A member of the RNA family "U1 spliceosomal RNA" from Papio anubis, 156 nucleotides long. The match comes from Rfam's covariance-model search (84 bits). The source organism's lineage runs through Eukaryota, Craniata, Boreoeutheria, Cercopithecidae and Papio. Rfam's curators write: U1 is a small nuclear RNA (snRNA) component of the spliceosome (involved in pre-mRNA splicing).
RNA sequence: AUACUUACCUGGCAGGGGAGACACUAUGAUCACAAAGGUGGUUUUCCCAGGGUUAGGCUCAUAUUCCAGGUGUGCUGACCCCUGCAAUUUCCCCAAAUGCAGGAAAUUCAACUCUAUAAUCGGUGGUUGGGGGAACUGUGUUUGCAAUUUCCCAUG
Number, nucleotide and partner (000 for none) at each position: 001a000002u000003a000004c000005u000006u000007a000008c000009c000010u000011g000012g115013c000014a113015g112016g048017g047018g046019a045020g044021a043022c000023a042024c041025u040026a039027u038028g000029a000030u000031c000032a000033c000034a000035a000036a000037g000038g027039u026040g025041g024042u023043u021044u020045u019046c018047c017048c016049a083050g082051g081052g080053u000054u000055a000056g076057g075058c074059u000060c072061a071062u070063a000064u000065u000066c000067c000068a000069g000070g062071u061072g060073u000074g058075c057076u056077g000078a000079c000080c052081c051082c050083u049084g000085c000086a000087a108088u106089u105090u104091c000092c102093c000094c000095a000096a000097a000098u000099g000100c000101a000102g092103g000104a090105a089106a088107u000108u087109c000110a000111a000112c015113u014114c000115u012116a000117u000118a000119a000120u000121c000122g000123g000124u000125g000126g000127u000128u000129g000130g000131g153132g152133g151134a000135a150136c000137u000138g000139u146140g145141u000142u000143u000144g000145c140146a139147a000148u000149u000150u135151c133152c132153c131154a000155u000156g000